[Rfam]
RNA: Bacterial RNase P class A
RNA sequence: GAGGAAAGUCCGGGCUCCACAGGGCACGGUGCCAGGUAACGCCUGGGCGGCGCGAGCCGACGGAAAGUGCAACAGAAAGAUACCGCCCAAGACUGCGCAAGCAGGACGGCAAGGGUGAAAUGGUGCGGUAAGAGCGCACCGCGAGUCGGGUAACCGACCGGCACGGCAAACCCCACCGGGAGCAAGGCCAAAUAGGGACCUCAUGACGCGGCCCGCGUCGGGUCCGGGUAGGCCGCUCGAGCGUAUCGGCGACGAUGCGCCUAGAGGAAUGGCUGUCCACGACAGAACCCGGCUUAUCGGCCGGCUCCGCCA
Numbered sequence: 001g002a003g004g005a006a007a008g009u010c011c012g013g014g015c016u017c018c019a020c021a022g023g024g025c026a027c028g029g030u031g032c033c034a035g036g037u038a039a040c041g042c043c044u045g046g047g048c049g050g051c052g053c054g055a056g057c058c059g060a061c062g063g064a065a066a067g068u069g070c071a072a073c074a075g076a077a078a079g080a081u082a083c084c085g086c087c088c089a090a091g092a093c094u095g096c097g098c099a100a101g102c103a104g105g106a107c108g109g110c111a112a113g114g115g116u117g118a119a120a121u122g123g124u125g126c127g128g129u130a131a132g133a134g135c136g137c138a139c140c141g142c143g144a145g146u147c148g149g150g151u152a153a154c155c156g157a158c159c160g161g162c163a164c165g166g167c168a169a170a171c172c173c174c175a176c177c178g179g180g181a182g183c184a185a186g187g188c189c190a191a192a193u194a195g196g197g198a199c200c201u202c203a204u205g206a207c208g209c210g211g212c213c214c215g216c217g218u219c220g221g222g223u224c225c226g227g228g229u230a231g232g233c234c235g236c237u238c239g240a241g242c243g244u245a246u247c248g249g250c251g252a253c254g255a256u257g258c259g260c261c262u263a264g265a266g267g268a269a270u271g272g273c274u275g276u277c278c279a280c281g282a283c284a285g286a287a288c289c290c291g292g293c294u295u296a297u298c299g300g301c302c303g304g305c306u307c308c309g310c311c312a
Stems, first nucleotide, its partner, number of pairs: 006295003010292005015182004022214004027178005032046005047061001048059004062173002067171002069167002083114002085110003093104004122140006141162001142160002145158005186234004196225006205219005241260008